[Rfam]
RNA sequence: CAACUACAUAAAAAGCACACUCAUAUAACGGCAGGGAUAGGGCCUGCAAGUUUCUACCGAUUCACCGUAAAUGAAUCGACUAUGGGUGAGCAAUGCGGCGUA
Numbered sequence: 001c002a003a004c005u006a007c008a009u010a011a012a013a014a015g016c017a018c019a020c021u022c023a024u025a026u027a028a029c030g031g032c033a034g035g036g037a038u039a040g041g042g043c044c045u046g047c048a049a050g051u052u053u054c055u056a057c058c059g060a061u062u063c064a065c066c067g068u069a070a071a072u073g074a075a076u077c078g079a080c081u082a083u084g085g086g087u088g089a090g091c092a093a094u095g096c097g098g099c100g101u102a
Base pairs, nucleotide, nucleotide: 018088019087020086021085022084023083024082025081031047032046033045034044035043058078059077060076061075062074063073064072
RNA: Purine riboswitch aptamer